[Rfam]
RNA sequence: GCCUCCGCGAGGAGGGGUCUGAAGGAAGCCCGAGCGCAAAGCUAUGAGCCGACGAACAGAAACAGCAUACAAGGCCGGGGUGUCCGGGCAAGUCAGCACAACAUGACGAAGUCCCACGGAUUCAGGAUGCCAAGGUAAAUGCUGCGGUUGUGUAGCCACAGUUCACGUU
Number, nucleotide and partner (000 for none) at each position: 001g000002c015003c014004u013005c012006c011007g000008c000009g000010a000011g006012g005013a004014g003015g002016g000017g000018u000019c000020u000021g000022a000023a000024g000025g000026a000027a000028g000029c000030c000031c167032g166033a000034g000035c000036g162037c161038a000039a000040a000041g156042c155043u154044a153045u152046g151047a149048g148049c147050c146051g145052a000053c000054g000055a000056a000057c000058a000059g000060a000061a000062a000063c144064a143065g142066c141067a140068u139069a000070c000071a000072a000073g000074g136075c135076c134077g000078g000079g131080g130081u129082g128083u127084c126085c000086g114087g113088g112089c111090a000091a000092g107093u106094c105095a104096g000097c000098a000099c000100a000101a000102c000103a000104u095105g094106a093107c092108g000109a000110a000111g089112u088113c087114c086115c000116a000117c000118g000119g000120a000121u000122u000123c000124a000125g000126g084127a083128u082129g081130c080131c079132a000133a000134g076135g075136u074137a000138a000139a068140u067141g066142c065143u064144g063145c051146g050147g049148u048149u047150g000151u046152g045153u044154a043155g042156c041157c000158a000159c000160a000161g037162u036163u000164c000165a000166c032167g031168u000169u000